A member of the RNA family "Archaeal large subunit ribosomal RNA" from Thermogymnomonas acidicola, 255 nucleotides of a longer RNA. Pairs were carried over by alignment from the consensus structure, which is taken from published work. The match comes from Rfam's covariance-model search (2826 bits). Rfam links the family to the GO terms structural constituent of ribosome and ribosome.
[Rfam]
RNA sequence: GAGUUCUGACGAGUGGCGAGGUUAAUCCCUUAGGGAGUAGCCGCAGCGAAAGCGAUUACCCGCACAGCAAUGGAGGGGUAGCGUAGCAAAUGCGUUUAGUCACUCGUGGGAGACCCGAAGCCGGUCGAUCUACGCCUGAGCAGGUUGAAGCCUAGCGAAAGCUAGGUGGAGGACCGAACCAGUUCUGAUGUGCAAAUCGUUUGGAUGACUUGGGUGUAGGGGUUAAAGGCCAAUCUAGGCCGGCAAUAGCGGGUU
Numbered sequence: 001g002a003g004u005u006c007u008g009a010c011g012a013g014u015g016g017c018g019a020g021g022u023u024a025a026u027c028c029c030u031u032a033g034g035g036a037g038u039a040g041c042c043g044c045a046g047c048g049a050a051a052g053c054g055a056u057u058a059c060c061c062g063c064a065c066a067g068c069a070a071u072g073g074a075g076g077g078g079u080a081g082c083g084u085a086g087c088a089a090a091u092g093c094g095u096u097u098a099g100u101c102a103c104u105c106g107u108g109g110g111a112g113a114c115c116c117g118a119a120g121c122c123g124g125u126c127g128a129u130c131u132a133c134g135c136c137u138g139a140g141c142a143g144g145u146u147g148a149a150g151c152c153u154a155g156c157g158a159a160a161g162c163u164a165g166g167u168g169g170a171g172g173a174c175c176g177a178a179c180c181a182g183u184u185c186u187g188a189u190g191u192g193c194a195a196a197u198c199g200u201u202u203g204g205a206u207g208a209c210u211u212g213g214g215u216g217u218a219g220g221g222g223u224u225a226a227a228g229g230c231c232a233a234u235c236u237a238g239g240c241c242g243g244c245a246a247u248a249g250c251g252g253g254u255u
Stems, first nucleotide, its partner, number of pairs: 005111003009107009020042004026036004046053002058079004065072002082094004114253002117250001121243006130219011141207001143175004150167007179204004185199001187198002221231003